[Rfam]
Shown here is a 61-nucleotide RNA sequence, a member of the family "RAGATH-18 RNA".
Rfam's curators put it in the seed alignment.
The family's RNA type in Rfam is small RNA.
RNA sequence: CCUGUGGAGUGUUACACCAAACGCAAGUAGCUCGGCAAAAGCGGACACGUUGAAGCAGGAA
Numbered sequence: 001c002c003u004g005u006g007g008a009g010u011g012u013u014a015c016a017c018c019a020a021a022c023g024c025a026a027g028u029a030g031c032u033c034g035g036c037a038a039a040a041g042c043g044g045a046c047a048c049g050u051u052g053a054a055g056c057a058g059g060a061a
Base pairs, nucleotide, nucleotide: 001059002058003057004056005055009048010047011046012045013044022043023042024041030036031035